[Rfam]
RNA sequence: GCCCUGUCGCGUGACUGGCGCAGUCGUGGAGCACCACGAGGGAGCGCGAUGCCUUCUCCCGCCGCGCGCCUGGGCGAUCUUC
Numbered sequence: 001g002c003c004c005u006g007u008c009g010c011g012u013g014a015c016u017g018g019c020g021c022a023g024u025c026g027u028g029g030a031g032c033a034c035c036a037c038g039a040g041g042g043a044g045c046g047c048g049a050u051g052c053c054u055u056c057u058c059c060c061g062c063c064g065c066g067c068g069c070c071u072g073g074g075c076g077a078u079c080u081u082c
Base pairs, nucleotide, nucleotide: 005051006050007049008048009047010046011045012044015041016040017070018069019068020067021066026037027036028035029034060076061075062074063073

Description: ZMP/ZTP riboswitch aptamer (pfl RNA motif): an 82-nucleotide sequence from Sphingomonas lycopersici. The source organism's lineage runs through Bacteria, Pseudomonadota, Alphaproteobacteria, Sphingomonadaceae and Sphingomonas.